[Rfam]
RNA sequence: UCAACGUGGACACACUGGACAAUAAUCUGUCCAGGCUGUGUCUGUGUGGCAGAAGGGAGUGUAGGGCUUUGCCCUGUGACAUAGAGUCCCAUUCCACAACGUUGGAUAUCAGGCUGGGCCUUGUGUCUGCACCUGCAUAUUCCUAAACCUUCUUAGAGUCUGUGGACUAUGACUGAGGAGACAAACCAUGCAGGAAACAGUG
Numbered sequence: 001u002c003a004a005c006g007u008g009g010a011c012a013c014a015c016u017g018g019a020c021a022a023u024a025a026u027c028u029g030u031c032c033a034g035g036c037u038g039u040g041u042c043u044g045u046g047u048g049g050c051a052g053a054a055g056g057g058a059g060u061g062u063a064g065g066g067c068u069u070u071g072c073c074c075u076g077u078g079a080c081a082u083a084g085a086g087u088c089c090c091a092u093u094c095c096a097c098a099a100c101g102u103u104g105g106a107u108a109u110c111a112g113g114c115u116g117g118g119c120c121u122u123g124u125g126u127c128u129g130c131a132c133c134u135g136c137a138u139a140u141u142c143c144u145a146a147a148c149c150u151u152c153u154u155a156g157a158g159u160c161u162g163u164g165g166a167c168u169a170u171g172a173c174u175g176a177g178g179a180g181a182c183a184a185a186c187c188a189u190g191c192a193g194g195a196a197a198c199a200g201u202g
Base pairs, nucleotide, nucleotide: 001105002104003103004102005101006100007099008043009042010041011040012039015035016034019030020029021028046097047096048095049094055090056089057088058087061082062081064077132194133193134192135191136190137189138188149180150179151178152177153176154175158167159166160165
RNA: Small nucleolar RNA SNORA73 family
Organism: Phascolarctos cinereus